RNA sequence: GAAAUAUAAGAACUCGUCUCUUAACUUUUAACUAAAAAAAUUAAGAACCGGCUCUUAAAACUCUUAUUUAAGAACCGAUUUUUAGCUUUUUUUAAUUAAAAAUUAAGAGACGGAUUCUUAUAUUCC
Numbered sequence: 001g002a003a004a005u006a007u008a009a010g011a012a013c014u015c016g017u018c019u020c021u022u023a024a025c026u027u028u029u030a031a032c033u034a035a036a037a038a039a040a041u042u043a044a045g046a047a048c049c050g051g052c053u054c055u056u057a058a059a060a061c062u063c064u065u066a067u068u069u070a071a072g073a074a075c076c077g078a079u080u081u082u083u084a085g086c087u088u089u090u091u092u093u094a095a096u097u098a099a100a101a102a103u104u105a106a107g108a109g110a111c112g113g114a115u116u117c118u119u120a121u122a123u124u125c126c
Base pairs, nucleotide, nucleotide: 001126003124004123005122006121007120008119009118010117011116012115014113015112016111017110018109019108020107021106022105023104024103026101027100028099029098030097031096033094034093035092036091037090038089039088041085042084043083044082045081046080047079
Background: The record is a 126-nucleotide RNA from Brassica oleracea, which matches "MIR9563 microRNA precursor family" in Rfam. Rfam links the family to the GO terms RISC complex and miRNA-mediated post-transcriptional gene silencing. The base pairs follow the family's consensus structure, which was predicted with RNAalifold. The match comes from Rfam's covariance-model search (111 bits).